RNA sequence: GAUUGCAACAUCCCCGCAGGCUGGGCGAAGCACAAGCUUCGCAGCGAGCCGGCUGCAAUC
Numbered sequence: 001g002a003u004u005g006c007a008a009c010a011u012c013c014c015c016g017c018a019g020g021c022u023g024g025g026c027g028a029a030g031c032a033c034a035a036g037c038u039u040c041g042c043a044g045c046g047a048g049c050c051g052g053c054u055g056c057a058a059u060c
Stems, first nucleotide, its partner, number of pairs: 001060007013046001014044001016053002019050004023045001025042007

Background:
The record is a 60-nucleotide sequence, which matches "nadA riboswitch" in Rfam. The base pairs follow the family's consensus structure, which is taken from published work.